[Rfam]
RNA: S-element
RNA sequence: UGUCAAGAGUCAUUGGCGUCGUUUUGGCGAGCAGGUUUCUUUUGCCUAAUCGAGGGUGAAAGAAAAUG
Numbered sequence: 001u002g003u004c005a006a007g008a009g010u011c012a013u014u015g016g017c018g019u020c021g022u023u024u025u026g027g028c029g030a031g032c033a034g035g036u037u038u039c040u041u042u043u044g045c046c047u048a049a050u051c052g053a054g055g056g057u058g059a060a061a062g063a064a065a066a067u068g
Base pairs, nucleotide, nucleotide: 010063011062013060014059017058018057019056020055022054023053024052026050029047031045032044033043034042035041